[Rfam]
RNA sequence: UUCGGCCCGCACCCUGCAUCAGGUUGCCCCUUCAAGCCGUCGCCGACGCACUUCCUAUUCGAAUUUCAAUGCGAUCCUGUCGUCACUCUGCGGCACGGC
Numbered sequence: 001u002u003c004g005g006c007c008c009g010c011a012c013c014c015u016g017c018a019u020c021a022g023g024u025u026g027c028c029c030c031u032u033c034a035a036g037c038c039g040u041c042g043c044c045g046a047c048g049c050a051c052u053u054c055c056u057a058u059u060c061g062a063a064u065u066u067c068a069a070u071g072c073g074a075u076c077c078u079g080u081c082g083u084c085a086c087u088c089u090g091c092g093g094c095a096c097g098g099c
Base pairs, nucleotide, nucleotide: 009027010026011025013023014022036099037098038097039096042094043093044092045091071083072082073081074080075079